[Rfam]
RNA: DUF3800-VI RNA
RNA sequence: CAGUUGAGAGAGCCGCAUCAGACGGUUCGCUAGGCAUAAGCCUACUUGGCUG
Number, nucleotide and partner (000 for none) at each position: 001c052002a051003g050004u049005u048006g047007a046008g045009a000010g028011a027012g026013c025014c024015g023016c000017a000018u000019c000020a000021g000022a000023c015024g014025g013026u012027u011028c010029g000030c000031u044032a043033g042034g041035c040036a000037u000038a000039a000040g035041c034042c033043u032044a031045c008046u007047u006048g005049g004050c003051u002052g001